[Rfam]
The record is a 102-nucleotide RNA from Theropithecus gelada, which matches "Y RNA" in Rfam. It is annotated as a non-coding RNA gene. Y RNAs are components of the Ro ribonucleoprotein particle (Ro RNP), in association with Ro60 and La proteins. The Y RNAs and Ro60 and La proteins are well conserved, but the function of the Ro RNP is not known. In humans the RNA component can be one of four small RNAs -- hY1, hY3, hY4 and hY5. These small RNAs are predicted to fold into a conserved secondary structure containing three stem structures. The organism belongs to Theropithecus, within Eukaryota.
RNA sequence: GGCUGGUCUGAGUGCAAUGGUAUUUACAACUAAUUGAUCACAACCAGUUACAGAUUUCUUUGUUUCUUCUUCAUUCCCCCUGCUUUACUUGAGCAGCCUCAA
Numbered sequence: 001g002g003c004u005g006g007u008c009u010g011a012g013u014g015c016a017a018u019g020g021u022a023u024u025u026a027c028a029a030c031u032a033a034u035u036g037a038u039c040a041c042a043a044c045c046a047g048u049u050a051c052a053g054a055u056u057u058c059u060u061u062g063u064u065u066c067u068u069c070u071u072c073a074u075u076c077c078c079c080c081u082g083c084u085u086u087a088c089u090u091g092a093g094c095a096g097c098c099u100c101a102a
Stems, first nucleotide, its partner, number of pairs: 001098005007092002010090002014086001016081001019078002028064003032060002